A member of the RNA family "Small Cajal body-specific RNA 7" from Haliaeetus albicilla, 318 nucleotides long.
The source organism's lineage runs through Eukaryota, Archelosauria, Coelurosauria, Accipitrinae and Haliaeetus.
A search with the family's covariance model found it, with a score of 188 bits.
[Rfam]
RNA sequence: UGGAAGUGAUGAAAUAGAGAUAACUGGGUGUCUGUUUGAAUGGAGUGUGUGUGAUAAAUAGAAUUUAAACCAAGUUAAACUGGGGGUGGGGUGUGGGGAAUGUGUGUGUCUGCGCAUGUAUAGAAAAGGCUUAAAGCGGGGGCACUGAUAAUGCAGUGCUGAUUCCGGAGUGCAUCUGAGGCAUGUUGUUGAGUUCUGGGGUGCCACUUUACAACAUUGCCAAUGAUUAAAGCCCAAAACAAGCCCACCAAAAUAAGCCUAGGCAUCUUAAAUCUCUAACAGGUUCAUAAAUGAAAGUGAUCCUGUGAUCUGAUCCAA
Numbered sequence: 001u002g003g004a005a006g007u008g009a010u011g012a013a014a015u016a017g018a019g020a021u022a023a024c025u026g027g028g029u030g031u032c033u034g035u036u037u038g039a040a041u042g043g044a045g046u047g048u049g050u051g052u053g054a055u056a057a058a059u060a061g062a063a064u065u066u067a068a069a070c071c072a073a074g075u076u077a078a079a080c081u082g083g084g085g086g087u088g089g090g091g092u093g094u095g096g097g098g099a100a101u102g103u104g105u106g107u108g109u110c111u112g113c114g115c116a117u118g119u120a121u122a123g124a125a126a127a128g129g130c131u132u133a134a135a136g137c138g139g140g141g142g143c144a145c146u147g148a149u150a151a152u153g154c155a156g157u158g159c160u161g162a163u164u165c166c167g168g169a170g171u172g173c174a175u176c177u178g179a180g181g182c183a184u185g186u187u188g189u190u191g192a193g194u195u196c197u198g199g200g201g202u203g204c205c206a207c208u209u210u211a212c213a214a215c216a217u218u219g220c221c222a223a224u225g226a227u228u229a230a231a232g233c234c235c236a237a238a239a240c241a242a243g244c245c246c247a248c249c250a251a252a253a254u255a256a257g258c259c260u261a262g263g264c265a266u267c268u269u270a271a272a273u274c275u276c277u278a279a280c281a282g283g284u285u286c287a288u289a290a291a292u293g294a295a296a297g298u299g300a301u302c303c304u305g306u307g308a309u310c311u312g313a314u315c316c317a318a
Base pairs, nucleotide, nucleotide: 001317002316003315004314184216185215186214187213188212189211191209193204194203196201